[Rfam]
RNA sequence: GGAGGCGUCAGGGUUCCUGGUGGUCCCCUUGGUCUUCAAAACCAAUGGGCGGCGCACCGCGUCGCCGGCGGGUUCGAUUCCCGUACGCCUCC
Dot-bracket structure: ((((((((...((..((....))..)).(((((.......)))))..(((((.........)))))..((((.......)))).))))))))
RNA: Selenocysteine transfer RNA